This 77-nucleotide RNA sequence from Oryza brachyantha belongs to the Rfam family "Small nucleolar RNA R160". Rfam classes the family as a C/D-box small nucleolar RNA. From the family's description: snoR160 is a C/D box small nucleolar RNA, which acts as a methylation guide for 25S ribosomal RNA in plants. snoR160 has been alternatively named snoZ270 in rice. The match comes from Rfam's covariance-model search (74 bits).
RNA sequence: AGCAAAAUGAGGAAGUCAUACCAUCAGAAAGUUCAUGUUGAUUACACACAUAUGGUCUUCAAAGUUCUCUGAUUGCU
Numbered sequence: 001a002g003c004a005a006a007a008u009g010a011g012g013a014a015g016u017c018a019u020a021c022c023a024u025c026a027g028a029a030a031g032u033u034c035a036u037g038u039u040g041a042u043u044a045c046a047c048a049c050a051u052a053u054g055g056u057c058u059u060c061a062a063a064g065u066u067c068u069c070u071g072a073u074u075g076c077u
Stems, first nucleotide, its partner, number of pairs: 001077005